[Rfam]
Shown here is a 50-nucleotide RNA sequence from Firmicutes bacterium CAG:646, a member of the family "Streptococcus sRNA SpF59 (ldcC RNA)". Taxonomically the source falls in Bacillota (Bacteria, Bacillati). The family's RNA type in Rfam is small RNA. On this family, see Mann et al., PLoS Pathog 2012: "Control of virulence by small RNAs in Streptococcus pneumoniae". It is one of the family's seed sequences.
RNA sequence: UGACCAUCCUUCGGGAUUAAGGCCAGACGGACAGCCGGGUCAACUGCCGA
Numbered sequence: 001u002g003a004c005c006a007u008c009c010u011u012c013g014g015g016a017u018u019a020a021g022g023c024c025a026g027a028c029g030g031a032c033a034g035c036c037g038g039g040u041c042a043a044c045u046g047c048c049g050a
Stems, first nucleotide, its partner, number of pairs: 001042005006017004